Shown here is a 65-nucleotide RNA sequence from Prosthecochloris aestuarii, a member of the family "Chlorobi-RRM RNA".

[Rfam]
RNA sequence: AACCACAGAAUGGUUUGGCGCUUUCAGGUGAUUUGUGCUCUUGAUUAUUUGUAAGCGUAUAGUAU
Numbered sequence: 001a002a003c004c005a006c007a008g009a010a011u012g013g014u015u016u017g018g019c020g021c022u023u024u025c026a027g028g029u030g031a032u033u034u035g036u037g038c039u040c041u042u043g044a045u046u047a048u049u050u051g052u053a054a055g056c057g058u059a060u061a062g063u064a065u
Stems, first nucleotide, its partner, number of pairs: 003018003009015002019057004025051009
The organism belongs to Prosthecochloris aestuarii, within Bacteria.